[Rfam]
RNA: mir-30 microRNA precursor family
RNA sequence: UCUGUUGCUGUAAACAUCCCCGACUGGAAGCUGGAAGCUUUAGCUUUCAGUCAGAUGUUUGCUGCCGCCGG
Numbered sequence: 001u002c003u004g005u006u007g008c009u010g011u012a013a014a015c016a017u018c019c020c021c022g023a024c025u026g027g028a029a030g031c032u033g034g035a036a037g038c039u040u041u042a043g044c045u046u047u048c049a050g051u052c053a054g055a056u057g058u059u060u061g062c063u064g065c066c067g068c069c070g071g
Base pairs, nucleotide, nucleotide: 002070004068005067008064010062011061012060013059014058015057016056017055018054023051024050025049026048027047028046029045030044031043032042